[Rfam]
The family of this 493-nucleotide sequence from Pichia membranifaciens is "RNase MRP". The family has 66 seed sequences and 3,510 matches in Rfam 15.1. A search with the family's covariance model found it, with a score of 78 bits. Rfam describes the family as follows. RNase MRP is an enzymatically active ribonucleoprotein with two distinct roles in eukaryotes.
RNA sequence: GUCCAUGUUGCAAGAAUCAUCUGUCGAGACAUACACAAGGGGCUCUUGCCCACACCUUUGGUCUUGGGGAAAGUCUCCGGCACGUUCUUUCAGGCGGCAACGUCAGAUGGAUCACCACAAAUCCAUUUCCACACUGGAACCGGUCGACACCAGCACGGAGGCUUCUUAGGUCUCAUAGUUUGUUUCUGCCAGCAUGGUGACUGUUGCGGCUGCCCCAUACCUGGGCCCUUGCAUUCAGUUGGACCGUUGGCUGCCGCCUCUGGUGGGAAAUAAGGGCUGUGAAACUGUGUUGUCCUGUGUGCACCGUCGGCCCGGUUCUGUUGGACUGUCGGGGGACAUUGCUACCUCGGUGCAUGUCCCCUUGUUUGAAAUCACUCUUUCUUCGAAUGGGUGUAUUCUGCAAAGCGCCAUGUGGCGCUAACGAUGGAUAUGAUGAUUGUCGUUGACACGCAAGUGUCGACGAUAACCCAAUGGAGCUCACUUGUAGCAUGGA
Numbered sequence: 001g002u003c004c005a006u007g008u009u010g011c012a013a014g015a016a017u018c019a020u021c022u023g024u025c026g027a028g029a030c031a032u033a034c035a036c037a038a039g040g041g042g043c044u045c046u047u048g049c050c051c052a053c054a055c056c057u058u059u060g061g062u063c064u065u066g067g068g069g070a071a072a073g074u075c076u077c078c079g080g081c082a083c084g085u086u087c088u089u090u091c092a093g094g095c096g097g098c099a100a101c102g103u104c105a106g107a108u109g110g111a112u113c114a115c116c117a118c119a120a121a122u123c124c125a126u127u128u129c130c131a132c133a134c135u136g137g138a139a140c141c142g143g144u145c146g147a148c149a150c151c152a153g154c155a156c157g158g159a160g161g162c163u164u165c166u167u168a169g170g171u172c173u174c175a176u177a178g179u180u181u182g183u184u185u186c187u188g189c190c191a192g193c194a195u196g197g198u199g200a201c202u203g204u205u206g207c208g209g210c211u212g213c214c215c216c217a218u219a220c221c222u223g224g225g226c227c228c229u230u231g232c233a234u235u236c237a238g239u240u241g242g243a244c245c246g247u248u249g250g251c252u253g254c255c256g257c258c259u260c261u262g263g264u265g266g267g268a269a270a271u272a273a274g275g276g277c278u279g280u281g282a283a284a285c286u287g288u289g290u291u292g293u294c295c296u297g298u299g300u301g302c303a304c305c306g307u308c309g310g311c312c313c314g315g316u317u318c319u320g321u322u323g324g325a326c327u328g329u330c331g332g333g334g335g336a337c338a339u340u341g342c343u344a345c346c347u348c349g350g351u352g353c354a355u356g357u358c359c360c361c362u363u364g365u366u367u368g369a370a371a372u373c374a375c376u377c378u379u380u381c382u383u384c385g386a387a388u389g390g391g392u393g394u395a396u397u398c399u400g401c402a403a404a405g406c407g408c409c410a411u412g413u414g415g416c417g418c419u420a421a422c423g424a425u426g427g428a429u430a431u432g433a434u435g436a437u438u439g440u441c442g443u444u445g446a447c448a449c450g451c452a453a454g455u456g457u458c459g460a461c462g463a464u465a466a467c468c469c470a471a472u473g474g475a476g477c478u479c480a481c482u483u484g485u486a487g488c489a490u491g492g493a
Base pairs, nucleotide, nucleotide: 002493003492004491005490006489007488008487009486010485011484015438016437017436019434020433021432024067025066026065027064028063029062030061040051041050042049043048072478073477075476076475077474078473093104094103095102096101105128106127107126108125109124110123111122112121356409358407360405362403363402364401365400370397371396372395381393383391384390440463441462442461443460444459445458446457447456448455